[Rfam]
RNA sequence: AAAGCUCUCAAAUGCAAGCUAGUUGUAAUAAGUUCAAUCUUUUUAUGGCCAGUAGUGCCCUAAAUAAGCAUCGAACUUAUUGCAACUAGCUUUAAUUUUUGAGUUUU
Dot-bracket structure: (((((((..((((..((((((((((((((((((((.(((((((((.(((.......))).)))).))).)).))))))))))))))))))))..))))..)))))))
The family of this 107-nucleotide RNA from Malus domestica is "MIR7125 microRNA precursor family".